RNA sequence: CGGGAAAACUCUCGUUAAGGAACUCGGCAAAAUGACCCCGUAACUUCGGGAGAAGGGGUGCCCCGGUAGGGUGAAUAGCCCGAGGGGGCCGCAGUGAAGAGGUCCAGGCGACUGUUUAGCAAAAACACAGGUCUCUGCGAAGCCGCAAGGCGAAGUAUAGGGGCUGACGCCUGCCCGGUGCUGGAAGGUUAAGGGGAAGGGUUAGCGCAAGCGAAGCUCUGAACCGAAGCCCCAGUAAACGGCGGCCGUAACUAUAACGGUCCUAAGGUAGCGAAAUUCCUUGUCGGGUAAGUUCCGACCCGCACGAAAGGCGUAACGAUCUGGACGCUGUCUCAACGAGAGACCCG
Numbered sequence: 001c002g003g004g005a006a007a008a009c010u011c012u013c014g015u016u017a018a019g020g021a022a023c024u025c026g027g028c029a030a031a032a033u034g035a036c037c038c039c040g041u042a043a044c045u046u047c048g049g050g051a052g053a054a055g056g057g058g059u060g061c062c063c064c065g066g067u068a069g070g071g072u073g074a075a076u077a078g079c080c081c082g083a084g085g086g087g088g089c090c091g092c093a094g095u096g097a098a099g100a101g102g103u104c105c106a107g108g109c110g111a112c113u114g115u116u117u118a119g120c121a122a123a124a125a126c127a128c129a130g131g132u133c134u135c136u137g138c139g140a141a142g143c144c145g146c147a148a149g150g151c152g153a154a155g156u157a158u159a160g161g162g163g164c165u166g167a168c169g170c171c172u173g174c175c176c177g178g179u180g181c182u183g184g185a186a187g188g189u190u191a192a193g194g195g196g197a198a199g200g201g202u203u204a205g206c207g208c209a210a211g212c213g214a215a216g217c218u219c220u221g222a223a224c225c226g227a228a229g230c231c232c233c234a235g236u237a238a239a240c241g242g243c244g245g246c247c248g249u250a251a252c253u254a255u256a257a258c259g260g261u262c263c264u265a266a267g268g269u270a271g272c273g274a275a276a277u278u279c280c281u282u283g284u285c286g287g288g289u290a291a292g293u294u295c296c297g298a299c300c301c302g303c304a305c306g307a308a309a310g311g312c313g314u315a316a317c318g319a320u321c322u323g324g325a326c327g328c329u330g331u332c333u334c335a336a337c338g339a340g341a342g343a344c345c346c347g
Base pairs, nucleotide, nucleotide: 001347002346003345004344009342010341011340012339013338014337015336016335018333019332020331035059036058037057038056039055044049060089061088062087063086064085067083069081070080071079072078090094102326103325104324105323106322107321108320109318110317113127114126115125130165131164132163133162134161135160136159137158138155142151143150144149168313169312170311171310173243174242175241178240179239180236181235182234183233184232187231188230189229193225194224198220199219200218201217202216205212206211244262245261246260247259248258249257263267273300283299284298285297286296287295288294
A member of the RNA family "Bacterial large subunit ribosomal RNA" from Thermoactinomyces daqus, 347 nucleotides of a longer RNA. The source organism's lineage runs through Bacteria, Bacillota, Caryophanales, Thermoactinomycetaceae and Thermoactinomyces.